RNA: MIR7486 microRNA precursor family
Organism: Gossypium raimondii
RNA sequence: CACGUCAGCGUGCUUUGCUGACGUGGCAACAAAUUGUCCCCUCGAGGACGCGAUUUGUUGCCACGUCAAGAAAGCGUGUUGACGUGG
Numbered sequence: 001c002a003c004g005u006c007a008g009c010g011u012g013c014u015u016u017g018c019u020g021a022c023g024u025g026g027c028a029a030c031a032a033a034u035u036g037u038c039c040c041c042u043c044g045a046g047g048a049c050g051c052g053a054u055u056u057g058u059u060g061c062c063a064c065g066u067c068a069a070g071a072a073a074g075c076g077u078g079u080u081g082a083c084g085u086g087g
Stems, first nucleotide, its partner, number of pairs: 001086016019068003023064015040047002